[Rfam]
RNA sequence: GUUGGUUGCAAUGAGGAUAUUAAGCUCCCUCUUCUGAUUAAAGUUGAGGAAACUCGCUGGCAGAAUCGAACCAAUAAUUACAAUUGCCACCACUGAGUAA
Numbered sequence: 001g002u003u004g005g006u007u008g009c010a011a012u013g014a015g016g017a018u019a020u021u022a023a024g025c026u027c028c029c030u031c032u033u034c035u036g037a038u039u040a041a042a043g044u045u046g047a048g049g050a051a052a053c054u055c056g057c058u059g060g061c062a063g064a065a066u067c068g069a070a071c072c073a074a075u076a077a078u079u080a081c082a083a084u085u086g087c088c089a090c091c092a093c094u095g096a097g098u099a100a
Stems, first nucleotide, its partner, number of pairs: 006100004
The family of this 100-nucleotide sequence from Cannabis sativa is "Small nucleolar RNA R30/Z108". Rfam classes the family as a C/D-box small nucleolar RNA. About the family: snoR30 is a C/D box small nucleolar RNA which acts as a methylation guide for 18S ribosomal RNA in plants. It scores 95 bits against the family's covariance model. A reference for the family is Marker et al. (2002), "Experimental RNomics. Identification of 140 Candidates for Small Non-Messenger RNAs in the Plant Arabidopsis thaliana", Curr Biol. The source organism's lineage runs through Eukaryota, Euphyllophyta, fabids, Rosales and Cannabis. The family's consensus secondary structure was predicted with PFOLD. Rfam 15.1 lists 626 matches to the family in 219 species.